[Rfam]
Notes
The family of this 131-nucleotide RNA from Eurypyga helias is "Small nucleolar RNA SNORA44". Rfam links the family to the GO terms nucleolus and RNA processing. NCBI's taxonomy places the organism under Eukaryota, Chordata, Dipnotetrapodomorpha, Coelurosauria, Eurypyga. Its Rfam clan is "SNORA44 clan". Rfam's curators write: ACA44 is a member of the H/ACA class of snoRNA that guide the sites of modification of uridines to pseudouridines. Rfam classes the family as an H/ACA-box small nucleolar RNA. Rfam 15.1 lists 1,056 matches to the family in 599 species. The literature on the family includes a 2001 paper in EMBO J by Huttenhofer et al., "RNomics: an experimental approach that identifies 201 candidates for novel, small, non-messenger RNAs in mouse".
RNA sequence: UGGCAUGUUUAUCCAAGAGCUGCGGCUCCGUGCGAUAGCCGCCGGUCUCCAACAACAUGCGAGAGCAACGGGAAGGUCUUUGACUGCUCGGCCUGUUCUGCCCGUUGCUGUCACUCGCCCCUCCGAUACCU
Numbered sequence: 001u002g003g004c005a006u007g008u009u010u011a012u013c014c015a016a017g018a019g020c021u022g023c024g025g026c027u028c029c030g031u032g033c034g035a036u037a038g039c040c041g042c043c044g045g046u047c048u049c050c051a052a053c054a055a056c057a058u059g060c061g062a063g064a065g066c067a068a069c070g071g072g073a074a075g076g077u078c079u080u081u082g083a084c085u086g087c088u089c090g091g092c093c094u095g096u097u098c099u100g101c102c103c104g105u106u107g108c109u110g111u112c113a114c115u116c117g118c119c120c121c122u123c124c125g126a127u128a129c130c131u
Stems, first nucleotide, its partner, number of pairs: 013044001019039004071124003075120002086111002089104001090102002